[Rfam]
A member of the RNA family "Actinobacteria sRNA Ms_IGR-7" from Nocardia sp. SYP-A9097, 120 nucleotides long. Lineage of the source: Bacteria > Bacillati > Mycobacteriales > Nocardiaceae > Nocardia. Rfam classes the family as a small RNA. It scores 89 bits against the family's covariance model.
RNA sequence: UGAAAGUGUCUUUCCGAACUGGAUCUGAUUGUUGCGUGAAGAACACCAAUCAUUCCAGGUCAGGGGACACUUUUGCUAUUUCACCGUCCCUUCAAUUCCCGAUUACGUCGGUGGAUCGAG
Number, nucleotide and partner (000 for none) at each position: 001u000002g074003a073004a072005a071006g070007u069008g068009u067010c066011u065012u064013u063014c000015c000016g061017a060018a000019c058020u057021g056022g055023a054024u000025c000026u052027g051028a050029u049030u000031g047032u000033u045034g044035c000036g000037u000038g000039a000040a000041g000042a000043a000044c034045a033046c000047c031048a000049a029050u028051c027052a026053u000054u023055c022056c021057a020058g019059g000060u017061c016062a000063g013064g012065g011066g010067a009068c008069a007070c006071u005072u004073u003074u002075g000076c000077u000078a000079u000080u000081u000082c000083a000084c000085c000086g000087u000088c000089c000090c000091u000092u000093c000094a000095a000096u000097u000098c000099c000100c118101g117102a116103u115104u000105a000106c113107g112108u000109c000110g000111g000112u107113g106114g000115a103116u102117c101118g100119a000120g000